[Rfam]
RNA sequence: CUGGUUCCGGUUCACGUCCGCAUGAUCAGUCGGGCGACCCGGGGCA
Numbered sequence: 001c002u003g004g005u006u007c008c009g010g011u012u013c014a015c016g017u018c019c020g021c022a023u024g025a026u027c028a029g030u031c032g033g034g035c036g037a038c039c040c041g042g043g044g045c046a
Stems, first nucleotide, its partner, number of pairs: 004045002007042004015036006023029001
L31-Actinobacteria ribosomal protein leader: a 46-nucleotide RNA from Cutibacterium avidum.
Lineage of the source: Bacteria > Bacillati > Actinomycetota > Cutibacterium > Cutibacterium avidum.
The family's RNA type in Rfam is cis-regulatory leader.
Pairs were carried over by alignment from the consensus structure, which is taken from published work.
For this family Rfam cites "Discovery of 20 novel ribosomal leader candidates in bacteria and archaea" (Eckert and Weinberg, BMC Microbiol, 2020).
It scores 37 bits against the family's covariance model.